[Rfam]
About this RNA
The record is a 148-nucleotide RNA sequence from Fervidicella metallireducens, which matches "glmS glucosamine-6-phosphate activated ribozyme aptamer" in Rfam. The base pairs follow the family's consensus structure, which is taken from published work. The family's RNA type in Rfam is riboswitch.
RNA sequence: UAAUCAUAUAAAGCGCCGGAACUUAUUUUAUAAGUUGACGAGGACAGGGCUUAUCGAAUUAUCGGCGGAUACCCUGCGGCUUACCACCGAAAGAGAUCUGACAAAACCAUAAAGUGAUUUAUGGGACAAAAGGAUCGGGUACAAUACU
Numbered sequence: 001u002a003a004u005c006a007u008a009u010a011a012a013g014c015g016c017c018g019g020a021a022c023u024u025a026u027u028u029u030a031u032a033a034g035u036u037g038a039c040g041a042g043g044a045c046a047g048g049g050c051u052u053a054u055c056g057a058a059u060u061a062u063c064g065g066c067g068g069a070u071a072c073c074c075u076g077c078g079g080c081u082u083a084c085c086a087c088c089g090a091a092a093g094a095g096a097u098c099u100g101a102c103a104a105a106a107c108c109a110u111a112a113a114g115u116g117a118u119u120u121a122u123g124g125g126a127c128a129a130a131a132g133g134a135u136c137g138g139g140u141a142c143a144a145u146a147c148u
Base pairs, nucleotide, nucleotide: 020036021035022034023033024032025031026030045076046075047074048073049072054065055064056063057062077089078088079087095136096135097134098133099132107124108123109122110121111120112119113118
Dot-bracket structure: ...................(((((((...)))))))........(((((....((((....))))......)))))(((.......))).....(((((.......(((((((....))))))).......)))))............